[Rfam]
RNA sequence: UAUCGGAGCGAGAAAUUCGACUCGACUUCUAUUUUUGAAUUACAGUCAGUCUUUUUCUCUCUCCUAUA
Numbered sequence: 001u002a003u004c005g006g007a008g009c010g011a012g013a014a015a016u017u018c019g020a021c022u023c024g025a026c027u028u029c030u031a032u033u034u035u036u037g038a039a040u041u042a043c044a045g046u047c048a049g050u051c052u053u054u055u056u057c058u059c060u061c062u063c064c065u066a067u068a
Stems, first nucleotide, its partner, number of pairs: 001068003005064004010059004019051004025046003
Record summary:
Shown here is a 68-nucleotide sequence from Diaphorina citri, a member of the family "mir-14 microRNA precursor family". A reference for the family is Skalsky et al. (2010), "Identification of microRNAs expressed in two mosquito vectors, Aedes albopictus and Culex quinquefasciatus", BMC Genomics. Taxonomically the source falls in Diaphorina (Eukaryota, Pancrustacea, Hexapoda, Hemiptera). The base pairs follow the family's consensus structure, which was predicted with RNAalifold. It scores 55 bits against the family's covariance model.